[Rfam]
RNA sequence: CCAUGCUAGGCGGGGAGCUGGCGGUUCCCUGUACCCGAAAUCCGCCAUACGCGGGGCCGAAUGCCUUCCGAGGCUUUGCCGGUUUGGUGUCGGUUUGUCUGAAGGUGUUGAGGAUUGAGUCCUGCGCAAUGGGAACUUGCGAACCUGGUCAGGUCCGGGAGGAAGCAGCCAUAAGCAAGCACUCCCGUGUGCCGCGGGGCCGCUCAGUCUGAGCCGGAUGGCAAAUACGGCCAGGUUGUCAAUGUCGACGGAGGAUGCAUGG
Numbered sequence: 001c002c003a004u005g006c007u008a009g010g011c012g013g014g015g016a017g018c019u020g021g022c023g024g025u026u027c028c029c030u031g032u033a034c035c036c037g038a039a040a041u042c043c044g045c046c047a048u049a050c051g052c053g054g055g056g057c058c059g060a061a062u063g064c065c066u067u068c069c070g071a072g073g074c075u076u077u078g079c080c081g082g083u084u085u086g087g088u089g090u091c092g093g094u095u096u097g098u099c100u101g102a103a104g105g106u107g108u109u110g111a112g113g114a115u116u117g118a119g120u121c122c123u124g125c126g127c128a129a130u131g132g133g134a135a136c137u138u139g140c141g142a143a144c145c146u147g148g149u150c151a152g153g154u155c156c157g158g159g160a161g162g163a164a165g166c167a168g169c170c171a172u173a174a175g176c177a178a179g180c181a182c183u184c185c186c187g188u189g190u191g192c193c194g195c196g197g198g199g200c201c202g203c204u205c206a207g208u209c210u211g212a213g214c215c216g217g218a219u220g221g222c223a224a225a226u227a228c229g230g231c232c233a234g235g236u237u238g239u240c241a242a243u244g245u246c247g248a249c250g251g252a253g254g255a256u257g258c259a260u261g262g
Base pairs, nucleotide, nucleotide: 001262002261003260004259005258006257009058010057011056012030013029014028015027016026017025018024019023034055035054036053037052065254066253067252068251069250070249072246073245074244076242080238081237082236083235084234085233086232087231088230093228094225095224096223097222098221099220102219104215105214106213112210113209114208115207116206117205118204119203120202121198122197123196124195125194126193127189128188130187131186132185133184134183136179137178138177139176140175146171147170148169149168154163155162156161